[Rfam]
RNA sequence: GUUCCCUGUGAUGUUCUUAUCCAAACCAUGCUAAUUCUGAAUCAUUUUUUGAUUGAAAUUUGUAAAUUAUCAUUUUCUGAGGGAACA
Numbered sequence: 001g002u003u004c005c006c007u008g009u010g011a012u013g014u015u016c017u018u019a020u021c022c023a024a025a026c027c028a029u030g031c032u033a034a035u036u037c038u039g040a041a042u043c044a045u046u047u048u049u050u051g052a053u054u055g056a057a058a059u060u061u062g063u064a065a066a067u068u069a070u071c072a073u074u075u076u077c078u079g080a081g082g083g084a085a086c087a
Base pairs, nucleotide, nucleotide: 001086002085003084004083005082006081007080
The record is an 87-nucleotide RNA from Coffea canephora, which matches "Small nucleolar RNA snoR53Y" in Rfam.
Gene Ontology terms of the family: RNA processing and nucleolus.
On this family, see Brown et al., RNA 2001: "Multiple snoRNA gene clusters from Arabidopsis".
The family's RNA type in Rfam is C/D-box small nucleolar RNA.
Lineage of the source: Eukaryota > Viridiplantae > Streptophytina > lamiids > Coffea.
The family is grouped with related families in Rfam's "snoR53 clan".